[Rfam]
RNA: Small Cajal body specific RNA 23
Organism: Rhinolophus ferrumequinum
RNA sequence: CUGCUCACCAGGGCUCGGUCCUCUCCACGUGGGACAGACCCACCCUCCAUGAGCGAGAGAAACGGGACUGGUUUGGGGGUCUCCUGUCUGAGUGGACACGGGAGACCACGGUUUUCAGUGCGACA
Numbered sequence: 001c002u003g004c005u006c007a008c009c010a011g012g013g014c015u016c017g018g019u020c021c022u023c024u025c026c027a028c029g030u031g032g033g034a035c036a037g038a039c040c041c042a043c044c045c046u047c048c049a050u051g052a053g054c055g056a057g058a059g060a061a062a063c064g065g066g067a068c069u070g071g072u073u074u075g076g077g078g079g080u081c082u083c084c085u086g087u088c089u090g091a092g093u094g095g096a097c098a099c100g101g102g103a104g105a106c107c108a109c110g111g112u113u114u115u116c117a118g119u120g121c122g123a124c125a
Stems, first nucleotide, its partner, number of pairs: 003054005012044002017040004025032002065121001067119005073111003078107008086097004